[Rfam]
RNA: mir-124 microRNA precursor family
RNA sequence: CGUUCGCGGUGUUCGGUGCGAGCCUUGAUUUGAUAAGAAUAUUAAGGCACGCGGUGAAUGCCACGGCCG
Dot-bracket structure: ...(((..(((((((..(((..(((((((...........)))))))..)))..)))))))..)))...